This 133-nucleotide RNA from Salix koriyanagi belongs to the Rfam family "MIR480 microRNA precursor family". Rfam 15.1 lists 3,070 matches to the family in 171 species. NCBI's taxonomy places the organism under Eukaryota, Viridiplantae, Salicaceae, Saliceae, Salix. The family's consensus secondary structure was predicted with WAR. Gene Ontology terms of the family: RISC complex and miRNA-mediated post-transcriptional gene silencing. The literature on the family includes a 2005 paper in Plant Cell by Lu et al., "Novel and mechanical stress-responsive MicroRNAs in Populus trichocarpa that are absent from Arabidopsis".
Nucleotides: 133
Base pairs, nucleotide, nucleotide: 005130006129007128009125012123014121018117019116024112025111027108028107029106031104
Number, partner (000 for none) and nucleotide at each position: 001000u002000a003000a004000u005130g006129u007128a008000u009125u010000u011000u012123g013000a014121g015000c016000a017000g018117a019116u020000u021000c022000u023000c024112a025111u026000c027108u028107g029106g030000u031104u032000a033000g034000g035000g036000c037000a038000g039000a040000u041000g042000c043000a044000c045000a046000c047000u048000g049000g050000a051000c052000u053000g054000c055000u056000c057000a058000u059000a060000a061000u062000c063000a064000c065000u066000c067000a068000a069000c070000c071000c072000a073000a074000c075000u076000a077000c078000a079000u080000c081000g082000a083000a084000g085000u086000g087000a088000u089000u090000u091000u092000g093000a094000g095000a096000c097000a098000a099000g100000a101000u102000a103000u104031a105000u106029u107028u108027g109000c110000u111025a112024u113000a114000c115000u116019g117018u118000u119000c120000a121014u122000g123012u124000a125009a126000u127000g128007u129006a130005u131000u132000a133000a